[Rfam]
Nucleotides: 152
Stems, first nucleotide, its partner, number of pairs: 002151002005148004011144003015140010026129003030125003034121018053102016069082005
Number, partner (000 for none) and nucleotide at each position: 001000c002151c003150u004000a005148c006147a007146u008145c009000u010000a011144u012143g013142u014000g015140u016139g017138u018137a019136g020135g021134a022133c023132c024131c025000c026129a027128a028127a029000g030125g031124a032123u033000c034121a035120c036119c037118a038117u039116u040115a041114a042113a043112u044111u045110u046109g047108g048107c049106a050105c051104a052000a053102a054101u055100c056099u057098c058097u059096a060095g061094a062093a063092a064091a065090g066089u067088u068087a069082u070081c071080a072079c073078a074000u075000g076000g077000a078073u079072g080071u081070g082069a083000g084000a085000c086000u087068u088067g089066g090065c091064u092063u093062u094061u095060c096059u097058a098057g099056a100055g101054a102053u103000c104051u105050g106049u107048g108047c109046c110045a111044a112043a113042u114041u115040u116039a117038a118037u119036g120035g121034u122000g123032a124031u125030c126000c127028u128027u129026u130000a131024g132023g133022g134021u135020c136019c137018u138017a139016c140015a141000c142013a143012c144011a145008g146007g147006u148005g149000c150003a151002g152000g
Record summary: Rfam assigns this 152-nucleotide sequence from Amborella trichopoda to the family "MIR8565 microRNA precursor family". The family's consensus secondary structure was predicted with RNAalifold. Rfam links the family to the GO terms miRNA-mediated post-transcriptional gene silencing and RISC complex. NCBI's taxonomy places the organism under Eukaryota, Streptophytina, Tracheophyta, Amborellales, Amborella.